Rfam assigns this 78-nucleotide RNA from Methylophaga muralis to the family "SAH (S-adenosyl-L-homocysteine) riboswitch aptamer". Lineage of the source: Bacteria > Gammaproteobacteria > Thiotrichales > Piscirickettsiaceae > Methylophaga.
RNA sequence: UUGAAUGAGGAACGCUGCGACAGAGAAUGCUCUGCUAGGCUUAUUCAAUUUCACAUUUCCAAACGGCGUUCAUUAUUA
Numbered sequence: 001u002u003g004a005a006u007g008a009g010g011a012a013c014g015c016u017g018c019g020a021c022a023g024a025g026a027a028u029g030c031u032c033u034g035c036u037a038g039g040c041u042u043a044u045u046c047a048a049u050u051u052c053a054c055a056u057u058u059c060c061a062a063a064c065g066g067c068g069u070u071c072a073u074u075a076u077u078a
Stems, first nucleotide, its partner, number of pairs: 002047007021034005